[Rfam]
RNA sequence: AUCAGCAGGUGAUGAAAUCAGAAAAUCUUAGGACACCUUCUGACACAGUUGAAGAUAGCUGUGUAUGAGAAAGAUUUUUAGUUUCUGAUGUUGAU
Numbered sequence: 001a002u003c004a005g006c007a008g009g010u011g012a013u014g015a016a017a018u019c020a021g022a023a024a025a026u027c028u029u030a031g032g033a034c035a036c037c038u039u040c041u042g043a044c045a046c047a048g049u050u051g052a053a054g055a056u057a058g059c060u061g062u063g064u065a066u067g068a069g070a071a072a073g074a075u076u077u078u079u080a081g082u083u084u085c086u087g088a089u090g091u092u093g094a095u
Stems, first nucleotide, its partner, number of pairs: 001095007041047002
This 95-nucleotide RNA from Tetracentron sinense belongs to the Rfam family "Small nucleolar RNA snoR31/Z110/Z27". About the family: This family contains several related snoRNAs including R31, Z27 and Z110. A search with the family's covariance model found it, with a score of 66 bits. Rfam 15.1 lists 571 matches to the family in 198 species. The family's RNA type in Rfam is C/D-box small nucleolar RNA.